[Rfam]
Shown here is a 145-nucleotide RNA sequence from Sciurus carolinensis, a member of the family "Small nucleolar RNA SNORA12". The base pairs follow the family's consensus structure, which was predicted with RNAalifold. About the family: U108 belongs to the H/ACA family of snoRNAs. The sequence is predicted to guide the pseudouridylation of the U372 residue in the 28S rRNA subunit. However it has not been reported as a pseudouridylation site. A search with the family's covariance model found it, with a score of 116 bits. For this family Rfam cites "A novel experimental approach for systematic identification of box H/ACA snoRNAs from eukaryotes" (Gu et al., Nucleic Acids Res, 2005). Rfam 15.1 lists 571 matches to the family in 378 species. Rfam classes the family as an H/ACA-box small nucleolar RNA. Lineage of the source: Eukaryota > Teleostomi > Tetrapoda > Glires > Sciurus.

RNA sequence: GAGUGUGUGGUUUCUUUCUGCUGCAUUUGUUAAGUUUUCAAAUGGGCCUACUCUAUCACAUACAUUAUAUUGGAGUUGGCAAAAGUUUGAAGACAGAAAGAUCUAUCUUGAGCCUUUCCUGCUUCAGAGAUUGGCUCCCCCAUGU
Dot-bracket structure: ....((((((.........(.(.((((((.........)))))).)).....))).)))............(((((((((....)))................(.(((.................))).)..)))))).......
Numbered sequence: 001g002a003g004u005g006u007g008u009g010g011u012u013u014c015u016u017u018c019u020g021c022u023g024c025a026u027u028u029g030u031u032a033a034g035u036u037u038u039c040a041a042a043u044g045g046g047c048c049u050a051c052u053c054u055a056u057c058a059c060a061u062a063c064a065u066u067a068u069a070u071u072g073g074a075g076u077u078g079g080c081a082a083a084a085g086u087u088u089g090a091a092g093a094c095a096g097a098a099a100g101a102u103c104u105a106u107c108u109u110g111a112g113c114c115u116u117u118c119c120u121g122c123u124u125c126a127g128a129g130a131u132u133g134g135c136u137c138c139c140c141c142a143u144g145u
Stems, first nucleotide, its partner, number of pairs: 005059003008055003020047001022046001024044006072138006078087003104130001106128003